RNA sequence: CAAGUCUGAAAAAUGAUCGCGAUGCAUGCUGCAUCGAGGAAAGUCCGAGCUCCAUAGGGCAGGGUGCUGGAUAACGUCCAGCGAGGGCGACCUUAGGGAAAGUGCCACAGAAAAAAACCGCCGGGGAACCGGUAAGGGUGCAACGGUGCGGUAAGAGCGCACCAGCAGUCAGGUGACUGGCUGGCUAGGUAAACCCCACCUGGAGCAAGACCAAAUAGGGAAGGGAUGAGGCGGCCCGCUGAGCCUUCCGGGUGUGUCGCUAGAGCCGGCAGGCAACUGACGGCCGAGAUAGAUGAUCAUUACCACGCCGUGCGGUGUGGGACAGAACUCGGCUUAAUGAGGACUUGAGCA
Numbered sequence: 001c002a003a004g005u006c007u008g009a010a011a012a013a014u015g016a017u018c019g020c021g022a023u024g025c026a027u028g029c030u031g032c033a034u035c036g037a038g039g040a041a042a043g044u045c046c047g048a049g050c051u052c053c054a055u056a057g058g059g060c061a062g063g064g065u066g067c068u069g070g071a072u073a074a075c076g077u078c079c080a081g082c083g084a085g086g087g088c089g090a091c092c093u094u095a096g097g098g099a100a101a102g103u104g105c106c107a108c109a110g111a112a113a114a115a116a117a118c119c120g121c122c123g124g125g126g127a128a129c130c131g132g133u134a135a136g137g138g139u140g141c142a143a144c145g146g147u148g149c150g151g152u153a154a155g156a157g158c159g160c161a162c163c164a165g166c167a168g169u170c171a172g173g174u175g176a177c178u179g180g181c182u183g184g185c186u187a188g189g190u191a192a193a194c195c196c197c198a199c200c201u202g203g204a205g206c207a208a209g210a211c212c213a214a215a216u217a218g219g220g221a222a223g224g225g226a227u228g229a230g231g232c233g234g235c236c237c238g239c240u241g242a243g244c245c246u247u248c249c250g251g252g253u254g255u256g257u258c259g260c261u262a263g264a265g266c267c268g269g270c271a272g273g274c275a276a277c278u279g280a281c282g283g284c285c286g287a288g289a290u291a292g293a294u295g296a297u298c299a300u301u302a303c304c305a306c307g308c309c310g311u312g313c314g315g316u317g318u319g320g321g322a323c324a325g326a327a328c329u330c331g332g333c334u335u336a337a338u339g340a341g342g343a344c345u346u347g348a349g350c351a
Stems, first nucleotide, its partner, number of pairs: 001347007010338001012301007020036007041335003045332005050205004057237004062201005067081005082096001083094004097196002102194002104190003118137002120133005145163006165185001166183007209258003219249006230240003265284004270279003